Rfam assigns this 76-nucleotide RNA from Gadus morhua to the family "Small nucleolar RNA SNORD72". The match comes from Rfam's covariance-model search (70 bits).
RNA sequence: UGCUUGCCAAUGAUGUUGAAUUUAAUGUCUGAACAAAUGAAAUCAAUGUGAUAUCAAUGUUUCACUGAGGUAAGCU
Number, nucleotide and partner (000 for none) at each position: 001u000002g075003c074004u073005u072006g071007c070008c069009a000010a000011u000012g000013a000014u000015g000016u000017u000018g000019a000020a000021u000022u000023u000024a000025a000026u000027g000028u000029c000030u000031g000032a000033a000034c000035a000036a000037a000038u000039g000040a000041a000042a000043u000044c000045a000046a000047u000048g000049u000050g000051a000052u000053a000054u000055c000056a000057a000058u000059g000060u000061u000062u000063c000064a000065c000066u000067g000068a000069g008070g007071u006072a005073a004074g003075c002076u000

From the family's description: snoRNA HBII-240 belongs to the CD family of snoRNAs. It is the human orthologue of the mouse MBII-240 and is predicted to guide 2'O-ribose methylation of the large 28S rRNA at residue U4590. Gene Ontology terms of the family: RNA processing and nucleolus.